[Rfam]
RNA sequence: AAAAAGGGCAGGCCUUGCUAAGGCACAGCAUGGGCGGCUCGCCGCCCUCGUGGUGAAUCGCGAUCAGGAGAUUUGCCCUGCAUAAUUUCUGAGCAGCCGCGCCGGAAUGGGCCUCUCGGCCAAUUCCGCCGG
Numbered sequence: 001a002a003a004a005a006g007g008g009c010a011g012g013c014c015u016u017g018c019u020a021a022g023g024c025a026c027a028g029c030a031u032g033g034g035c036g037g038c039u040c041g042c043c044g045c046c047c048u049c050g051u052g053g054u055g056a057a058u059c060g061c062g063a064u065c066a067g068g069a070g071a072u073u074u075g076c077c078c079u080g081c082a083u084a085a086u087u088u089c090u091g092a093g094c095a096g097c098c099g100c101g102c103c104g105g106a107a108u109g110g111g112c113c114u115c116u117c118g119g120c121c122a123a124u125u126c127c128g129c130c131g132g
Base pairs, nucleotide, nucleotide: 008081009080010079011078012077013023014022015021016020024052025051026050028048032047033046034045035044036043037042053076054075055074056073057072058071059070099130101129102128104127105126106125107124108123110121111120112119113118
The family of this 132-nucleotide RNA from Phytophthora lilii is "U11 spliceosomal RNA". Clan: U1 clan. It scores 68 bits against the family's covariance model. Taxonomically the source falls in Phytophthora (Eukaryota, Stramenopiles, Peronosporomycetes, Peronosporaceae). The base pairs follow the family's consensus structure, which is taken from published work. Rfam 15.1 lists 2,595 matches to the family in 1,202 species.